[Rfam]
RNA sequence: AGGCCUGGAGAGAGAGGCAGGGUCUGAUCUCCAGCCUCAGUUGCAGCUGUUGAUCAGCGUUGCCUUUCUCAUUCUCUCCA
Numbered sequence: 001a002g003g004c005c006u007g008g009a010g011a012g013a014g015a016g017g018c019a020g021g022g023u024c025u026g027a028u029c030u031c032c033a034g035c036c037u038c039a040g041u042u043g044c045a046g047c048u049g050u051u052g053a054u055c056a057g058c059g060u061u062g063c064c065u066u067u068c069u070c071a072u073u074c075u076c077u078c079c080a
Base pairs, nucleotide, nucleotide: 008072010070011069012068013067014066015065016064017063018062019061020060022058024057025056026055027054028053029052032049033048034047035046
Dot-bracket structure: .......(.(((((((((((.(.((((((..((((..........))))..))))))).))))))))))).)........